[Rfam]
RNA sequence: CGACCUUUGCAACACUCUGGCCCUUACCGUCUUUUCCCGCCUUCGGGCCUGGAAUUGUCAUAUCACAACGUGGUAUAGGCUUAUUUUAAGCAAAGAAGAGCAAAUCGACCUGCUACUCACCGCGGUAUCUUCGAGGGGAGCUUCGUGCUUCUUUCUGUGGAUACAGUGGUCCAUUUAACGGUCAAAAU
Numbered sequence: 001c002g003a004c005c006u007u008u009g010c011a012a013c014a015c016u017c018u019g020g021c022c023c024u025u026a027c028c029g030u031c032u033u034u035u036c037c038c039g040c041c042u043u044c045g046g047g048c049c050u051g052g053a054a055u056u057g058u059c060a061u062a063u064c065a066c067a068a069c070g071u072g073g074u075a076u077a078g079g080c081u082u083a084u085u086u087u088a089a090g091c092a093a094a095g096a097a098g099a100g101c102a103a104a105u106c107g108a109c110c111u112g113c114u115a116c117u118c119a120c121c122g123c124g125g126u127a128u129c130u131u132c133g134a135g136g137g138g139a140g141c142u143u144c145g146u147g148c149u150u151c152u153u154u155c156u157g158u159g160g161a162u163a164c165a166g167u168g169g170u171c172c173a174u175u176u177a178a179c180g181g182u183c184a185a186a187a188u
Stems, first nucleotide, its partner, number of pairs: 007093003019081004025075004031057001034054003107183004120169004125164006